Rfam assigns this 84-nucleotide RNA from Bombyx mori to the family "mir-2807 microRNA precursor family".
RNA sequence: UUAACUCGAAUUUGUAUGGAGUUAGAACAGCGCCCCUAGCGACAAACGUAGGCAAACGAUCCGACUUCAUACAAAUUCAAGUUA
Dot-bracket structure: .......(((((((((.(.((((.((.(.....((...(.......)...)).....).)).)))).).)))))))))......
Numbered sequence: 001u002u003a004a005c006u007c008g009a010a011u012u013u014g015u016a017u018g019g020a021g022u023u024a025g026a027a028c029a030g031c032g033c034c035c036c037u038a039g040c041g042a043c044a045a046a047c048g049u050a051g052g053c054a055a056a057c058g059a060u061c062c063g064a065c066u067u068c069a070u071a072c073a074a075a076u077u078c079a080a081g082u083u084a
Stems, first nucleotide, its partner, number of pairs: 008078009018068001020066004025061002028058001034052002039047001

A reference for the family is Liu et al. (2010), "MicroRNAs of Bombyx mori identified by Solexa sequencing", BMC Genomics. The match comes from Rfam's covariance-model search (59 bits). Lineage of the source: Eukaryota > Opisthokonta > Protostomia > Aparaglossata > Bombyx. Its family is annotated with RISC complex and miRNA-mediated post-transcriptional gene silencing in the Gene Ontology. The family has 8 seed sequences and 5,120 matches in Rfam 15.1. The family's consensus secondary structure was predicted with RNAalifold.